[Rfam]
RNA sequence: UCCAGUGGUAGUCAGCUGUCCAGAGCAGUACUGUGCCUGUGAUAGUGUUACACCGCUGGGAGAUAAAGAUCAGCCAUUUCUUCUGGCUGCCAUUGUCACCGUUCUGGAGACAGUUGAUGCCAGCAAGAAGUGGCAUUGUGCUUCCCUGAGAGUGCACUAAAGACUUGCUUUCCCUCUUUAGUGCUAGUCCGGAAGCAUACAUA
Number, nucleotide and partner (000 for none) at each position: 001u060002c059003c058004a057005g056006u055007g054008g053009u052010a000011g051012u050013c000014a000015g046016c045017u044018g043019u042020c041021c039022a038023g037024a000025g000026c000027a000028g000029u000030a000031c000032u000033g000034u000035g000036c000037c023038u022039g021040u000041g020042a019043u018044a017045g016046u015047g000048u000049u000050a012051c011052a009053c008054c007055g006056c005057u004058g003059g002060g001061a000062g000063a000064u000065a000066a000067a000068g000069a136070u135071c000072a000073g134074c133075c132076a131077u130078u129079u128080c000081u000082u000083c000084u125085g124086g000087c119088u000089g000090c116091c000092a114093u000094u112095g111096u110097c109098a000099c107100c106101g000102u000103u000104c000105u000106g100107g099108a000109g097110a096111c095112a094113g000114u092115u000116g090117a000118u000119g087120c000121c000122a000123g000124c085125a084126a000127g000128a079129a078130g077131u076132g075133g074134c073135a070136u069137u000138g198139u197140g196141c195142u194143u193144c192145c191146c000147u000148g000149a000150g000151a000152g000153u000154g184155c183156a182157c000158u180159a179160a178161a177162g176163a175164c000165u000166u000167g000168c000169u000170u000171u000172c000173c000174c000175u163176c162177u161178u160179u159180a158181g000182u156183g155184c154185u000186a000187g000188u000189c000190c000191g145192g144193a143194a142195g141196c140197a139198u138199a000200c000201a000202u000203a000
This 203-nucleotide sequence from Tyto alba belongs to the Rfam family "Small nucleolar RNA SNORA74". The family has 24 seed sequences and 1,348 matches in Rfam 15.1. The base pairs follow the family's consensus structure, which was predicted with PFOLD. Rfam classes the family as an H/ACA-box small nucleolar RNA. NCBI's taxonomy places the organism under Eukaryota, Metazoa, Saurischia, Strigiformes, Tyto.